[Rfam]
RNA: Small Cajal body specific RNA 4
RNA sequence: GCUGGAGGACUGAGUUGGAUGAGGUAAGAUUUUGCUGAUAUGUUCCUAGAAAAAAGGGUUGGCAAGAACAGCCCUCACUGGAGACUAUCACAGGGCUGACUGUUCUACCCAACACUC
Numbered sequence: 001g002c003u004g005g006a007g008g009a010c011u012g013a014g015u016u017g018g019a020u021g022a023g024g025u026a027a028g029a030u031u032u033u034g035c036u037g038a039u040a041u042g043u044u045c046c047u048a049g050a051a052a053a054a055a056g057g058g059u060u061g062g063c064a065a066g067a068a069c070a071g072c073c074c075u076c077a078c079u080g081g082a083g084a085c086u087a088u089c090a091c092a093g094g095g096c097u098g099a100c101u102g103u104u105c106u107a108c109c110c111a112a113c114a115c116u117c
Base pairs, nucleotide, nucleotide: 002049003048004046005045006044008036010034012032013031014030015029016028056110057109058108059107067101069098070097071096072095073094074093075092079090080089081088